This 127-nucleotide RNA belongs to the Rfam family "MIR529 microRNA precursor family". Its family is annotated with RISC complex and miRNA-mediated post-transcriptional gene silencing in the Gene Ontology. Rfam's curators put it in the seed alignment.
[Rfam]
RNA sequence: AUCGAGGCUAAAGGAAGAAGAGAGAGAGUACAGCCUUAGUUCAGAUCACAUAUGACUAUCUUUUGCGAGUCUGAUCGAUACUCUGAUGAAGGCUGUACCCUCUCUCUUCUUCUCUUAGCUUCUUGAU
Dot-bracket structure: ..((..(..((.((((((((((((((.(((((((((.....................................................))))))))).)))))))))))))).))..)....))..